[Rfam]
RNA sequence: GCCGGUACGGCAGCGCGCACACGCACACAGUGCGCCGUUAUCUUCUCCGGCUUGCGUGCAUGCUGCCUUCCGCAAAGCUGCAGCGCGGCGCUCUGGAGGCCUUGCCCCGCGCACUGCUCUUUACAUGGCCCGACGUGAGGGCACUUCGCGGGCAGUGCUGCGGCCUCGUGUGGGAUCGCGUCAGGACUGAAGGAGAGCGAAUCCCGGGGCUCGGUGUGGAGAAGGAGGUGCCAAGUAGCCCCGUUGCGGAGAGUGUGUCAGCCCCAUCGCAGUGCACCUCACUGCCCUCCCGCUUCCCCGGCCACUUGGCACUCACUACCCCCUCCCCUUCCCUUCUCCCCCGUACCCCCCCCCUCUCUUUCUCGCAUCCUCUGCCCUCUCACCGCCGCGCCGGGCGCACCGGCGCUCUUUUCCGUUUUGAUUUCGCGUGUCCCAACACACAGUUGGAUCGUUUUUCUUCUCUCCCUAACGA
Numbered sequence: 001g002c003c004g005g006u007a008c009g010g011c012a013g014c015g016c017g018c019a020c021a022c023g024c025a026c027a028c029a030g031u032g033c034g035c036c037g038u039u040a041u042c043u044u045c046u047c048c049g050g051c052u053u054g055c056g057u058g059c060a061u062g063c064u065g066c067c068u069u070c071c072g073c074a075a076a077g078c079u080g081c082a083g084c085g086c087g088g089c090g091c092u093c094u095g096g097a098g099g100c101c102u103u104g105c106c107c108c109g110c111g112c113a114c115u116g117c118u119c120u121u122u123a124c125a126u127g128g129c130c131c132g133a134c135g136u137g138a139g140g141g142c143a144c145u146u147c148g149c150g151g152g153c154a155g156u157g158c159u160g161c162g163g164c165c166u167c168g169u170g171u172g173g174g175a176u177c178g179c180g181u182c183a184g185g186a187c188u189g190a191a192g193g194a195g196a197g198c199g200a201a202u203c204c205c206g207g208g209g210c211u212c213g214g215u216g217u218g219g220a221g222a223a224g225g226a227g228g229u230g231c232c233a234a235g236u237a238g239c240c241c242c243g244u245u246g247c248g249g250a251g252a253g254u255g256u257g258u259c260a261g262c263c264c265c266a267u268c269g270c271a272g273u274g275c276a277c278c279u280c281a282c283u284g285c286c287c288u289c290c291c292g293c294u295u296c297c298c299c300g301g302c303c304a305c306u307u308g309g310c311a312c313u314c315a316c317u318a319c320c321c322c323c324u325c326c327c328c329u330u331c332c333c334u335u336c337u338c339c340c341c342c343g344u345a346c347c348c349c350c351c352c353c354c355u356c357u358c359u360u361u362c363u364c365g366c367a368u369c370c371u372c373u374g375c376c377c378u379c380u381c382a383c384c385g386c387c388g389c390g391c392c393g394g395g396c397g398c399a400c401c402g403g404c405g406c407u408c409u410u411u412u413c414c415g416u417u418u419u420g421a422u423u424u425c426g427c428g429u430g431u432c433c434c435a436a437c438a439c440a441c442a443g444u445u446g447g448a449u450c451g452u453u454u455u456u457c458u459u460c461u462c463u464c465c466c467u468a469a470c471g472a
Stems, first nucleotide, its partner, number of pairs: 002447004009165003013161003017158004023059004028054003032051002036049002062089005068083002072081003090153004094148005103143005108137004116129003168439004172434005177428003180422008189413004194409006206378005213371002217367002219364009231309006238302003246293003251289003255285002257282002260279001267276001315344002383403003388398002449472005
Dot-bracket structure: .((((...(((.(((.((((..((((.(((.((..((..........))))))).))))..(((((.((..(((....))))).)))))(((((((((....(((((((((....(((........)))....)))).)))))))))).)))).))))))).)))..((((((((((((((((((((.((((.((((((......(((((..((..(((((((((((...((((((.(((.....(((..(((.((((.(......(........)..).)).)).))).)))......))).)))))).....((..........................))...........))))))))).))..))..)))))....(((..((.......))..))))))))))))).))))))))...))).))))).))))....)))).(((((..............)))))

Rfam assigns this 472-nucleotide RNA sequence from Leishmania mexicana to the family "Heat shock protein 83 3' UTR". Rfam 15.1 lists 33 matches to the family in 10 species. The family's RNA type in Rfam is cis-regulatory element.